[Rfam]
RNA sequence: GCCGGGGGGACGGAGUCACGUCCCCUUGUCACCCGAGUGGGGGCUGAUAGUUGGAAGUCACGCAUGAUUCUAUCGGUCCAGACUGUCUGCGUCGAUGGCGUGUCCGCUCUGAGCCUACAGUCGGUAACGGCCCUUCCCUGACGGGAGGUGGUCGUGGCUGAUGAUUGACCCGGGACCGCGUGAGGCAGUAAUCUGAGCAGCGAAUACGGGUAGCUGCGGGCGGCAGACGGGUCGCAUGCCUGAGUGGGCGGCUGGGCCACCCGGUGGGUCCUCUGCGGGGCAACCAACUGUU
Numbered sequence: 001g002c003c004g005g006g007g008g009g010a011c012g013g014a015g016u017c018a019c020g021u022c023c024c025c026u027u028g029u030c031a032c033c034c035g036a037g038u039g040g041g042g043g044c045u046g047a048u049a050g051u052u053g054g055a056a057g058u059c060a061c062g063c064a065u066g067a068u069u070c071u072a073u074c075g076g077u078c079c080a081g082a083c084u085g086u087c088u089g090c091g092u093c094g095a096u097g098g099c100g101u102g103u104c105c106g107c108u109c110u111g112a113g114c115c116u117a118c119a120g121u122c123g124g125u126a127a128c129g130g131c132c133c134u135u136c137c138c139u140g141a142c143g144g145g146a147g148g149u150g151g152u153c154g155u156g157g158c159u160g161a162u163g164a165u166u167g168a169c170c171c172g173g174g175a176c177c178g179c180g181u182g183a184g185g186c187a188g189u190a191a192u193c194u195g196a197g198c199a200g201c202g203a204a205u206a207c208g209g210g211u212a213g214c215u216g217c218g219g220g221c222g223g224c225a226g227a228c229g230g231g232u233c234g235c236a237u238g239c240c241u242g243a244g245u246g247g248g249c250g251g252c253u254g255g256g257c258c259a260c261c262c263g264g265u266g267g268g269u270c271c272u273c274u275g276c277g278g279g280g281c282a283a284c285c286a287a288c289u290g291u292u
Stems, first nucleotide, its partner, number of pairs: 001044003004027008032041003046292009057281002059278001062274001064272001066270002069268006075258007083250001085249003097240007104230002108227004113221004118216004122160004127155006135148002138145002161166001168211005179202003186195003

Background:
The record is a 292-nucleotide RNA sequence from Volvox reticuliferus, which matches "Plant signal recognition particle RNA" in Rfam. Pairs were carried over by alignment from the consensus structure, which is taken from published work. The match comes from Rfam's covariance-model search (117 bits). Rfam 15.1 lists 4,988 matches to the family in 266 species. The organism belongs to Volvox, within Eukaryota.